The record is a 121-nucleotide sequence from Ligilactobacillus ceti, which matches "FMN riboswitch aptamer (RFN element)" in Rfam. Lineage of the source: Bacteria > Lactobacillales > Lactobacillaceae > Ligilactobacillus > Ligilactobacillus ceti. The match comes from Rfam's covariance-model search (122 bits). Its family is annotated with FMN binding in the Gene Ontology.

Nucleotides: 121
Base pairs, nucleotide, nucleotide: 003119004118005117006116007115008114009113010112017029018028019027031101032100033091034090035049036048037047038046044089045088053066054065071087072086073085074084075083093104094103095102
Number, partner (000 for none) and nucleotide at each position: 001000g002000u003119u004118u005117a006116u007115c008114u009113u010112c011000a012000g013000g014000g015000c016000a017029g018028g019027g020000u021000g022000u023000a024000a025000a026000u027019c028018c029017c030000g031101a032100c033091c034090g035049g036048c037047g038046g039000u040000a041000a042000u043000a044089g045088u046038c047037c048036g049035c050000g051000a052000c053066c054065u055000c056000u057000a058000g059000u060000a061000a062000u063000a064000g065054a066053g067000u068000u069000g070000a071087a072086c073085u074084g075083g076000u077000g078000u079000a080000a081000c082000u083075c084074c085073a086072g087071u088045a089044c090034c091033g092000a093104c094103a095102g096000u097000a098000u099000a100032g101031u102095c103094u104093g105000g106000a107000u108000g109000g110000a111000a112010g113009a114008a115007g116006a117005u118004a119003g120000g121000g